Shown here is a 155-nucleotide RNA sequence from Desulfopila aestuarii, a member of the family "FMN riboswitch aptamer (RFN element)".
RNA sequence: AACUAUUCUCAGGGCGGGGUGAAAUUCCCCACCGGCGGUGAUUUCCGAUGUAUGACGGAAACAGCCCGCGAGCGCCUGCGGCAUUUGCCCAGGGUCAAGCAGAUCUGGUGUGAUUCCAGAGCCGACGGUUAGAGUCCGGAAGAGAGAGGAUAGCU
Numbered sequence: 001a002a003c004u005a006u007u008c009u010c011a012g013g014g015c016g017g018g019g020u021g022a023a024a025u026u027c028c029c030c031a032c033c034g035g036c037g038g039u040g041a042u043u044u045c046c047g048a049u050g051u052a053u054g055a056c057g058g059a060a061a062c063a064g065c066c067c068g069c070g071a072g073c074g075c076c077u078g079c080g081g082c083a084u085u086u087g088c089c090c091a092g093g094g095u096c097a098a099g100c101a102g103a104u105c106u107g108g109u110g111u112g113a114u115u116c117c118a119g120a121g122c123c124g125a126c127g128g129u130u131a132g133a134g135u136c137c138g139g140a141a142g143a144g145a146g147a148g149g150a151u152a153g154c155u
Stems, first nucleotide, its partner, number of pairs: 003153008017029003031135002033124002035069004064122002072100002104120005126138003